RNA: mir-10 microRNA precursor family
Organism: Ophiophagus hannah
RNA sequence: UGGCAUAAACCCGUAGAUCCGAUCUUGUGGUGAAAUACUGUGCACAAGCUCGUUUCUAUGGGUCAGUGUCAG
Numbered sequence: 001u002g003g004c005a006u007a008a009a010c011c012c013g014u015a016g017a018u019c020c021g022a023u024c025u026u027g028u029g030g031u032g033a034a035a036u037a038c039u040g041u042g043c044a045c046a047a048g049c050u051c052g053u054u055u056c057u058a059u060g061g062g063u064c065a066g067u068g069u070c071a072g
Base pairs, nucleotide, nucleotide: 002070003069004068005067006066010062011061012060015057016056017055020052021051022050024048025047026046027045028044029043